[Rfam]
Record summary:
Rfam assigns this 121-nucleotide RNA from Parasedimentitalea huanghaiensis to the family "TPP riboswitch aptamer (THI element)". NCBI's taxonomy places the organism under Bacteria, Pseudomonadati, Rhodobacterales, Paracoccaceae, Parasedimentitalea.

RNA sequence: GUCCUUAUGCAGGGGAGUCCCACCUAAGGGACUGAGAGGCGUUCAGGACAUCUGUCCGGUGGCGCGACCCUUUGAACCUGACCCAGUUGACACUGGCGUAGGAAGCGAGGCGCGCGACGGG
Numbered sequence: 001g002u003c004c005u006u007a008u009g010c011a012g013g014g015g016a017g018u019c020c021c022a023c024c025u026a027a028g029g030g031a032c033u034g035a036g037a038g039g040c041g042u043u044c045a046g047g048a049c050a051u052c053u054g055u056c057c058g059g060u061g062g063c064g065c066g067a068c069c070c071u072u073u074g075a076a077c078c079u080g081a082c083c084c085a086g087u088u089g090a091c092a093c094u095g096g097c098g099u100a101g102g103a104a105g106c107g108a109g110g111c112g113c114g115c116g117a118c119g120g121g
Stems, first nucleotide, its partner, number of pairs: 006109001008107003011071004017032005039065005077102004083096004